[Rfam]
RNA sequence: GGAGAAGUACCCAAGAGGCUGAAGGGGACGCACUCGAAAUGCGUUAGGGGUUAACAGCCCGCGUGGGUUCAAAUCCCACCUUCUCCG
Numbered sequence: 001g002g003a004g005a006a007g008u009a010c011c012c013a014a015g016a017g018g019c020u021g022a023a024g025g026g027g028a029c030g031c032a033c034u035c036g037a038a039a040u041g042c043g044u045u046a047g048g049g050g051u052u053a054a055c056a057g058c059c060c061g062c063g064u065g066g067g068u069u070c071a072a073a074u075c076c077c078a079c080c081u082u083c084u085c086c087g
Stems, first nucleotide, its partner, number of pairs: 001086007010026003028044005063079005

This 87-nucleotide sequence from Heyndrickxia sporothermodurans belongs to the Rfam family "tRNA".